[Rfam]
RNA sequence: CCUUGUCGCCUGAUCCUUGCUUCAACCUAGAUUGGCUAAGGUGAGCAAAGUUUCAGGUGUGUCAGUGG
Numbered sequence: 001c002c003u004u005g006u007c008g009c010c011u012g013a014u015c016c017u018u019g020c021u022u023c024a025a026c027c028u029a030g031a032u033u034g035g036c037u038a039a040g041g042u043g044a045g046c047a048a049a050g051u052u053u054c055a056g057g058u059g060u061g062u063c064a065g066u067g068g
Stems, first nucleotide, its partner, number of pairs: 003065003007059007016050003021045004026041003